[Rfam]
The family of this 109-nucleotide sequence from Gynuella sunshinyii is "Guanidine-I riboswitch aptamer".
Pairs were carried over by alignment from the consensus structure.
RNA sequence: UCAAUAGAAGGCUAGGGUUCCGGCUACACAAACAAUUGUAGUGUCUGGUCCGAGAGCUUUCGACCUUGACAGUUUCAAGGUUACACGGCGGGGAAAAAGCCCGGGAGAC
Numbered sequence: 001u002c003a004a005u006a007g008a009a010g011g012c013u014a015g016g017g018u019u020c021c022g023g024c025u026a027c028a029c030a031a032a033c034a035a036u037u038g039u040a041g042u043g044u045c046u047g048g049u050c051c052g053a054g055a056g057c058u059u060u061c062g063a064c065c066u067u068g069a070c071a072g073u074u075u076c077a078a079g080g081u082u083a084c085a086c087g088g089c090g091g092g093g094a095a096a097a098a099g100c101c102c103g104g105g106a107g108a109c
Stems, first nucleotide, its partner, number of pairs: 007061006015051002020048002022045001023042006062082008084104001086107001090102003
This family represents a conserved RNA structure found upstream of the ykkC and yxkD genes in Bacillus subtilis and related genes in other bacteria.
The match comes from Rfam's covariance-model search (94 bits).
Taxonomically the source falls in Gynuella sunshinyii (Bacteria, Pseudomonadati, Oceanospirillales, Gynuella).
Gene Ontology term of the family: regulation of gene expression.